[Rfam]
RNA sequence: GGCCUAUGAUGCACUUACAUAAGAGUAGUGGACAGAACCGUUUUCUGACAACUUUUUCUACUGAGGCC
Numbered sequence: 001g002g003c004c005u006a007u008g009a010u011g012c013a014c015u016u017a018c019a020u021a022a023g024a025g026u027a028g029u030g031g032a033c034a035g036a037a038c039c040g041u042u043u044u045c046u047g048a049c050a051a052c053u054u055u056u057u058c059u060a061c062u063g064a065g066g067c068c
Stems, first nucleotide, its partner, number of pairs: 001068004
This 68-nucleotide sequence from Albula glossodonta belongs to the Rfam family "Small nucleolar RNA SNORD75". For this family Rfam cites "Purified box C/D snoRNPs are able to reproduce site-specific 2'-O-methylation of target RNA in vitro" (Galardi et al., Mol Cell Biol, 2002). A search with the family's covariance model found it, with a score of 55 bits.